[Rfam]
Record summary
Shown here is a 77-nucleotide sequence from Papaver somniferum, a member of the family "Small nucleolar RNA R21". Gene Ontology terms of the family: RNA processing and nucleolus. By type it is a C/D-box small nucleolar RNA.

RNA sequence: UAUCCCGAUGAAGAUUAUGUUCAAAAAUUAAAGUAGUGGACUGAUAUCUAUUGAUGAUUUUUUAAUUCUGAGGGAUC
Numbered sequence: 001u002a003u004c005c006c007g008a009u010g011a012a013g014a015u016u017a018u019g020u021u022c023a024a025a026a027a028u029u030a031a032a033g034u035a036g037u038g039g040a041c042u043g044a045u046a047u048c049u050a051u052u053g054a055u056g057a058u059u060u061u062u063u064a065a066u067u068c069u070g071a072g073g074g075a076u077c
Base pairs, nucleotide, nucleotide: 002076003075004074005073006072